Record summary: Rfam assigns this 167-nucleotide RNA from Paraburkholderia diazotrophica to the family "Burkholderia sRNA Bp2_Cand287_SIPHT". By type it is a small RNA. It scores 124 bits against the family's covariance model. The base pairs follow the family's consensus structure, which was predicted with RNAalifold. NCBI's taxonomy places the organism under Bacteria, Pseudomonadati, Pseudomonadota, Burkholderiaceae, Paraburkholderia.

[Rfam]
RNA sequence: AAAAAGCCCGCUUUGCGUCGGCAUAAGCGGGCUUCGUGUGCGGGGAUGCUGUGAGCGUCGAUGGCUGUGCUGCUGGCCCCACCGUUCGCUUUAGCUGUUUUGGGUUUCCCCGCGUCCGCAAGCUGAGAUCAAAUCGACGCAAGCCCCGAUAGUAACACUGCAUGCGC
Numbered sequence: 001a002a003a004a005a006g007c008c009c010g011c012u013u014u015g016c017g018u019c020g021g022c023a024u025a026a027g028c029g030g031g032c033u034u035c036g037u038g039u040g041c042g043g044g045g046a047u048g049c050u051g052u053g054a055g056c057g058u059c060g061a062u063g064g065c066u067g068u069g070c071u072g073c074u075g076g077c078c079c080c081a082c083c084g085u086u087c088g089c090u091u092u093a094g095c096u097g098u099u100u101u102g103g104g105u106u107u108c109c110c111c112g113c114g115u116c117c118g119c120a121a122g123c124u125g126a127g128a129u130c131a132a133a134u135c136g137a138c139g140c141a142a143g144c145c146c147c148g149a150u151a152g153u154a155a156c157a158c159u160g161c162a163u164g165c166g167c
Stems, first nucleotide, its partner, number of pairs: 004034009014023003039141004051089002057086001063080002067077002091126006102111003112119002
Dot-bracket structure: ...(((((((((.(((....)))..)))))))))....((((........((....(.....((..((.......)).)).....).)).((((((.....(((....)))((....)).))))))...........))))..........................